[Rfam]
Shown here is a 104-nucleotide RNA sequence from Aotus nancymaae, a member of the family "Y RNA". Y RNAs are components of the Ro ribonucleoprotein particle (Ro RNP), in association with Ro60 and La proteins. The Y RNAs and Ro60 and La proteins are well conserved, but the function of the Ro RNP is not known. It scores 49 bits against the family's covariance model.
RNA sequence: AGCUGGUUCAACUGCAGUGGUGUUUACAACUAAUUUGAUCACAACCAGUUAUACAUUUCUUUGUUCCUUCCUCACUCCUGCUUCCUUUACUUGACUAGCCUAAA
Numbered sequence: 001a002g003c004u005g006g007u008u009c010a011a012c013u014g015c016a017g018u019g020g021u022g023u024u025u026a027c028a029a030c031u032a033a034u035u036u037g038a039u040c041a042c043a044a045c046c047a048g049u050u051a052u053a054c055a056u057u058u059c060u061u062u063g064u065u066c067c068u069u070c071c072u073c074a075c076u077c078c079u080g081c082u083u084c085c086u087u088u089a090c091u092u093g094a095c096u097a098g099c100c101u102a103a104a
Stems, first nucleotide, its partner, number of pairs: 002099007010092002014088001016082005022077001028065003032061002